This 163-nucleotide RNA sequence from Synaphobranchus kaupii belongs to the Rfam family "Small Cajal body specific RNA 1".

[Rfam]
RNA sequence: CUGCACCUGAUACUGACCUUGUGGUCCCUAGCCUUGUGGCCCCCUGGCUAUAGGCUGGGCCCCAGUGGCCCCCGGGUCUCCAAAGGUGCCAGAUUAUCAGCAGCCCUGAUAUUUAAGCUCGGAGUGUGGAGAUGCGCUCUGCGUUAUGACUCAGUGCACAGUC
Number, nucleotide and partner (000 for none) at each position: 001c000002u000003g089004c088005a087006c086007c085008u084009g000010a000011u000012a000013c000014u000015g078016a077017c076018c075019u000020u000021g072022u000023g070024g069025u068026c067027c059028c058029u057030a056031g055032c054033c053034u000035u052036g051037u050038g049039g048040c047041c000042c000043c000044c000045u000046g000047g040048c039049u038050a037051u036052a035053g033054g032055c031056u030057g029058g028059g027060c000061c000062c000063c000064a000065g000066u000067g026068g025069c024070c023071c000072c021073c000074g000075g018076g017077u016078c015079u000080c000081c000082a000083a000084a008085g007086g006087u005088g004089c003090c000091a000092g000093a000094u000095u000096a000097u000098c000099a000100g000101c000102a000103g157104c156105c000106c000107u000108g000109a000110u000111a000112u000113u000114u000115a000116a000117g000118c000119u000120c000121g000122g137123a000124g135125u134126g133127u132128g000129g000130a000131g000132a127133u126134g125135c124136g000137c122138u000139c154140u153141g152142c000143g150144u149145u000146a000147u000148g000149a144150c143151u000152c141153a140154g139155u000156g104157c103158a000159c000160a000161g000162u000163c000
The family's consensus secondary structure was predicted with RNAalifold. Rfam classes the family as a small Cajal body RNA. A search with the family's covariance model found it, with a score of 66 bits. scaRNAs are a specific class of small nuclear RNAs which localise to the Cajal bodies and guide the modification of RNA polymerase II transcribed spliceosomal RNAs U1, U2, U4, U5 and U12. ACA35 belong to the H/ACA box class of guide RNAs as it has the predicted hairpin-hinge-hairpin-tail structure, conserved H/ACA-box motifs and is found associated with GAR1. It is predicted to guide pseudouridylation of the U2 spliceosomal snRNA at residue U89.